[Rfam]
RNA sequence: AUUUGCGAGAACCUUUUGAAUCACUCAAGUAAUGGAGUGAUUCAAAAGGUUUUCAACG
Numbered sequence: 001a002u003u004u005g006c007g008a009g010a011a012c013c014u015u016u017u018g019a020a021u022c023a024c025u026c027a028a029g030u031a032a033u034g035g036a037g038u039g040a041u042u043c044a045a046a047a048g049g050u051u052u053u054c055a056a057c058g
Stems, first nucleotide, its partner, number of pairs: 007054015026039002